[Rfam]
RNA sequence: AGUGGCCCCCUACUCCCUUUAUAGUGCACUACUUUUUACCUGAAAGUAGUGCACUAUAAAGGGAGUAGGGUGCCAUCU
Numbered sequence: 001a002g003u004g005g006c007c008c009c010c011u012a013c014u015c016c017c018u019u020u021a022u023a024g025u026g027c028a029c030u031a032c033u034u035u036u037u038a039c040c041u042g043a044a045a046g047u048a049g050u051g052c053a054c055u056a057u058a059a060a061g062g063g064a065g066u067a068g069g070g071u072g073c074c075a076u077c078u
Stems, first nucleotide, its partner, number of pairs: 001078002004074003008070003012066008022056009
RNA: mir-130 microRNA precursor family
Organism: Salvelinus namaycush